A member of the RNA family "RprA RNA" from Yersinia bercovieri, 105 nucleotides long. By type it is a small RNA. The base pairs follow the family's consensus structure, which was predicted with PFOLD. For this family Rfam cites "Regulation of RpoS by a novel small RNA: the characterization of RprA" (Majdalani et al., Mol Microbiol, 2001). The organism belongs to Yersinia bercovieri, within Bacteria. Rfam describes the family as follows. Translational regulation of the stationary phase sigma factor RpoS is mediated by the formation of a double-stranded RNA stem-loop structure in the upstream region of the rpoS messenger RNA, occluding the translation initiation site.
RNA sequence: GUUUAAAUAAAUCAUUUCAGAAUGAUUUACUUAAAUAUCUGUAAUCGAAUAUACGUAUUGCUGUGUGUAGUCUUUGCCUAUCACUUAAGAUGGGCUUUUUUUUUG
Numbered sequence: 001g002u003u004u005a006a007a008u009a010a011a012u013c014a015u016u017u018c019a020g021a022a023u024g025a026u027u028u029a030c031u032u033a034a035a036u037a038u039c040u041g042u043a044a045u046c047g048a049a050u051a052u053a054c055g056u057a058u059u060g061c062u063g064u065g066u067g068u069a070g071u072c073u074u075u076g077c078c079u080a081u082c083a084c085u086u087a088a089g090a091u092g093g094g095c096u097u098u099u100u101u102u103u104u105g
Base pairs, nucleotide, nucleotide: 002022003021004020032043033042059067060066061065076095077094078093079092080091081090082089